[Rfam]
Shown here is a 93-nucleotide RNA from Marinobacterium marinum, a member of the family "Glycine riboswitch aptamer". The pairing is the family consensus, mapped onto this sequence. It scores 52 bits against the family's covariance model.
RNA sequence: CCCGCCCUCGCAGGAGAGAGGAUCAUGACGUACCGGUCCCGCCGAAGGCGCAAACUCCCAUAAUCGCUCAGGCACAUGUACUGCGAACUCAAU
Numbered sequence: 001c002c003c004g005c006c007c008u009c010g011c012a013g014g015a016g017a018g019a020g021g022a023u024c025a026u027g028a029c030g031u032a033c034c035g036g037u038c039c040c041g042c043c044g045a046a047g048g049c050g051c052a053a054a055c056u057c058c059c060a061u062a063a064u065c066g067c068u069c070a071g072g073c074a075c076a077u078g079u080a081c082u083g084c085g086a087a088c089u090c091a092a093u
Base pairs, nucleotide, nucleotide: 008086009085010084011083012082013081020039021038022037023036041073042072043071044069045068048067049066050065054061